[Rfam]
Nucleotides: 058
Stems, first nucleotide, its partner, number of pairs: 015029004033057010
Number, partner (000 for none) and nucleotide at each position: 001000a002000a003000g004000u005000u006000u007000c008000a009000g010000c011000u012000u013000a014000c015029a016028g017027c018026c019000u020000g021000a022000a023000u024000u025000a026018g027017g028016c029015u030000a031000a032000c033057g034056g035055c036054u037053g038052g039051u040050g041049a042048u043000u044000u045000u046000u047000u048042a049041u050040c051039a052038c053037c054036a055035g056034c057033c058000u
The record is a 58-nucleotide RNA from Candidatus Gullanella endobia, which matches "Pseudomonas sRNA P26" in Rfam. The match comes from Rfam's covariance-model search (53 bits). The literature on the family includes a 2006 paper in Nucleic Acids Res by Livny et al., "Identification of 17 Pseudomonas aeruginosa sRNAs and prediction of sRNA-encoding genes in 10 diverse pathogens using the bioinformatic tool sRNAPredict2". The family's RNA type in Rfam is non-coding RNA gene. From the family's description: This small RNA (sRNA) was computationally identified in the genome of the opportunistic pathogen Pseudomonas aeruginosa and its expression verified by northern blot analysis. P26 is conserved across many Gammaproteobacteria species and appears to be consistently located between the DNA directed RNA polymerase (beta subunit) and 50S ribosomal protein L7/L12 genes. The organism belongs to Candidatus Gullanella, within Bacteria.